The record is a 118-nucleotide sequence from Arthrobacter subterraneus, which matches "SAM (S-adenosyl methionine) riboswitch aptamer" in Rfam. The source organism's lineage runs through Bacteria, Bacillati, Actinomycetes, Micrococcales and Arthrobacter.
RNA sequence: AAUCAUGAGCUCCAGCCACAAGCCCUGGCGGGCUGGACAGCAACCCUCUAUGUCGUAGCGGGGUGCUCCAGGUGAUGAUUAGGCCGCACGGAGAACCACGUGCCGGCAAGUACGGCGU
Numbered sequence: 001a002a003u004c005a006u007g008a009g010c011u012c013c014a015g016c017c018a019c020a021a022g023c024c025c026u027g028g029c030g031g032g033c034u035g036g037a038c039a040g041c042a043a044c045c046c047u048c049u050a051u052g053u054c055g056u057a058g059c060g061g062g063g064u065g066c067u068c069c070a071g072g073u074g075a076u077g078a079u080u081a082g083g084c085c086g087c088a089c090g091g092a093g094a095a096c097c098a099c100g101u102g103c104c105g106g107c108a109a110g111u112a113c114g115g116c117g118u
Stems, first nucleotide, its partner, number of pairs: 001080004009038001011037006022029001039067003044063003048058002083107004087102004